[Rfam]
RNA sequence: CCAUACGCCGGGCGAAAGCCCGGCCUCUGGCAACAUCGGGCAGAGGCUCAGAAGGCCGCUGCCUUUACUUUGAAGAAAUGAGACCAGCAGGGGCUUCCGGGCUGGUACCCGGAACAUCUAUGGGAAUCUUCGUGGUUCGCGUGAGCGGGCAGGCGAGGGCAUACCUGGGUGAUGGCCCCUAACCGAGGGUGACCA
Numbered sequence: 001c002c003a004u005a006c007g008c009c010g011g012g013c014g015a016a017a018g019c020c021c022g023g024c025c026u027c028u029g030g031c032a033a034c035a036u037c038g039g040g041c042a043g044a045g046g047c048u049c050a051g052a053a054g055g056c057c058g059c060u061g062c063c064u065u066u067a068c069u070u071u072g073a074a075g076a077a078a079u080g081a082g083a084c085c086a087g088c089a090g091g092g093g094c095u096u097c098c099g100g101g102c103u104g105g106u107a108c109c110c111g112g113a114a115c116a117u118c119u120a121u122g123g124g125a126a127u128c129u130u131c132g133u134g135g136u137u138c139g140c141g142u143g144a145g146c147g148g149g150c151a152g153g154c155g156a157g158g159g160c161a162u163a164c165c166u167g168g169g170u171g172a173u174g175g176c177c178c179c180u181a182a183c184c185g186a187g188g189g190u191g192a193c194c195a
Stems, first nucleotide, its partner, number of pairs: 001030003005026001007024007038064006046056003089180005094174001096113006115171004120166001122164001125162001127159002131155003136149005